[Rfam]
RNA sequence: AAAUGAUAAAGGCACAUCUAUUGAAAGAUAGAGUCGCAAAGCUAUGGGUCUAAGGGACAGUUUGUCCUAUGAUCGCCAGGUUGCCAAA
Numbered sequence: 001a002a003a004u005g006a007u008a009a010a011g012g013c014a015c016a017u018c019u020a021u022u023g024a025a026a027g028a029u030a031g032a033g034u035c036g037c038a039a040a041g042c043u044a045u046g047g048g049u050c051u052a053a054g055g056g057a058c059a060g061u062u063u064g065u066c067c068u069a070u071g072a073u074c075g076c077c078a079g080g081u082u083g084c085c086a087a088a
Stems, first nucleotide, its partner, number of pairs: 012037002017032006040082004045078003048073003055067004